Shown here is a 219-nucleotide RNA sequence from Streptococcus infantis, a member of the family "FMN riboswitch aptamer (RFN element)".
[Rfam]
RNA sequence: GAGGGUCUUCAGGGCAGGGUGUGAUUCCCGACCGGCGGUAAAUUUGACUAGCUAUUUUAGCUUUCUCUUCGUUGUCUUGUCUCGAUAUACUUUAAGUAUUAUCUUCGACUGCGACGUCUAGAUAAAACUAAAAUAUCUUAGCCAAAUAAGUCCGCGAGCGCAAGCUGAUGUGGUGAGAUUCCACAACCGACAGUAUAGUCUGGAUGGGAGAAGACGAAA
Numbered sequence: 001g002a003g004g005g006u007c008u009u010c011a012g013g014g015c016a017g018g019g020u021g022u023g024a025u026u027c028c029c030g031a032c033c034g035g036c037g038g039u040a041a042a043u044u045u046g047a048c049u050a051g052c053u054a055u056u057u058u059a060g061c062u063u064u065c066u067c068u069u070c071g072u073u074g075u076c077u078u079g080u081c082u083c084g085a086u087a088u089a090c091u092u093u094a095a096g097u098a099u100u101a102u103c104u105u106c107g108a109c110u111g112c113g114a115c116g117u118c119u120a121g122a123u124a125a126a127a128c129u130a131a132a133a134u135a136u137c138u139u140a141g142c143c144a145a146a147u148a149a150g151u152c153c154g155c156g157a158g159c160g161c162a163a164g165c166u167g168a169u170g171u172g173g174u175g176a177g178a179u180u181c182c183a184c185a186a187c188c189g190a191c192a193g194u195a196u197a198g199u200c201u202g203g204a205u206g207g208g209a210g211a212a213g214a215c216g217a218a219a
Stems, first nucleotide, its partner, number of pairs: 005215006017029003031199002033189002035155004158165002169185005191202003

Gene Ontology term of the family: FMN binding.
Lineage of the source: Bacteria > Bacillati > Bacillota > Streptococcus > Streptococcus infantis.
Pairs were carried over by alignment from the consensus structure, which is taken from published work.